[Rfam]
RNA sequence: GAAUUAGCUUUUUGGUGUCUUAUGAUGAAGCUUCAUAGGGCAGAUUCUGAGCUGAGAAAUAAAAUUUCUCUCCACUGAUUCUCUCUAUAUGCCAUCUGAAGACACUAUAUAUUGC
Numbered sequence: 001g002a003a004u005u006a007g008c009u010u011u012u013u014g015g016u017g018u019c020u021u022a023u024g025a026u027g028a029a030g031c032u033u034c035a036u037a038g039g040g041c042a043g044a045u046u047c048u049g050a051g052c053u054g055a056g057a058a059a060u061a062a063a064a065u066u067u068c069u070c071u072c073c074a075c076u077g078a079u080u081c082u083c084u085c086u087a088u089a090u091g092c093c094a095u096c097u098g099a100a101g102a103c104a105c106u107a108u109a110u111a112u113u114g115c
Base pairs, nucleotide, nucleotide: 013107014106015105016104017103018102019101020100030095034091035090036089038084039083040082043079046078047077049075051073054070055069056068057067058066
The record is a 115-nucleotide RNA from Pardalotus punctatus, which matches "Small nucleolar RNA SNORD90" in Rfam. The literature on the family includes a 2001 paper in EMBO J by Huttenhofer et al., "RNomics: an experimental approach that identifies 201 candidates for novel, small, non-messenger RNAs in mouse". It scores 58 bits against the family's covariance model. It is annotated as a C/D-box small nucleolar RNA. The source organism's lineage runs through Eukaryota, Sauria, Australaves, Meliphagoidea and Pardalotus. snoRNA HBII-295 belongs to the family of C/D snoRNAs.